Rfam assigns this 79-nucleotide sequence from Eschrichtius robustus to the family "Small nucleolar RNA U2-19". On this family, see Tycowski et al., Curr Biol 2004: "Guide RNAs with 5' Caps and Novel Box C/D snoRNA-like Domains for Modification of snRNAs in Metazoa". Pairs were carried over by alignment from the consensus structure, which is taken from published work. It scores 73 bits against the family's covariance model.
RNA sequence: GACCAAUGAUGAAAAUAGCCAGAUCUGAGCAUCUAAAAACCUUCCAGUCUACCUAUGUGUGAUCUCUAUAGUUCUGAGA
Dot-bracket structure: ............................((((....(.((......)).)....)))).....................